[Rfam]
RNA sequence: GUUGGAUACGGAGACAUGCAUCCGGUAACCAUUGGAGGCAAAAUAGUGGGGUCACUUUGCGCAAUAGCGGGGGUGUUGACUAUUGCCUUACCUGUGCCAGUAAUUGUGUCGAAU
Numbered sequence: 001g002u003u004g005g006a007u008a009c010g011g012a013g014a015c016a017u018g019c020a021u022c023c024g025g026u027a028a029c030c031a032u033u034g035g036a037g038g039c040a041a042a043a044u045a046g047u048g049g050g051g052u053c054a055c056u057u058u059g060c061g062c063a064a065u066a067g068c069g070g071g072g073g074u075g076u077u078g079a080c081u082a083u084u085g086c087c088u089u090a091c092c093u094g095u096g097c098c099a100g101u102a103a104u105u106g107u108g109u110c111g112a113a114u
Base pairs, nucleotide, nucleotide: 001114002113005110007108008107009106010105011104014101015100018097019096020095021094037077038076039075040074050062
Dot-bracket structure: ((..(.(((((..((..((((...............((((.........(...........)...........))))................))))..))..))))).)..))
Shown here is a 114-nucleotide RNA sequence from Cyprinodon variegatus, a member of the family "Potassium channel RNA editing signal". The family has 85 seed sequences and 14,095 matches in Rfam 15.1. This family represents a group of sequences related to the human potassium channel Kv1.1 hairpin element which directs the efficient modification of an adenosine to inosine by an adenosine deaminase acting on RNA (ADAR). The ADAR modification causes an isoleucine/valine recoding event which lies in the ion-conducting pore of the potassium channel. The base pairs follow the family's consensus structure, which is taken from published work. Rfam classes the family as a cis-regulatory element.